[Rfam]
RNA sequence: CCACGAGAAAGGCAAACCCGUCGCGAGGCGGGGGCGCAAAGCCCAGGGCCCCACACCGGGGCGGCCAGGCUGCCGAA
Numbered sequence: 001c002c003a004c005g006a007g008a009a010a011g012g013c014a015a016a017c018c019c020g021u022c023g024c025g026a027g028g029c030g031g032g033g034g035c036g037c038a039a040a041g042c043c044c045a046g047g048g049c050c051c052c053a054c055a056c057c058g059g060g061g062c063g064g065c066c067a068g069g070c071u072g073c074c075g076a077a
Stems, first nucleotide, its partner, number of pairs: 012037002017032006040071004046066002048062005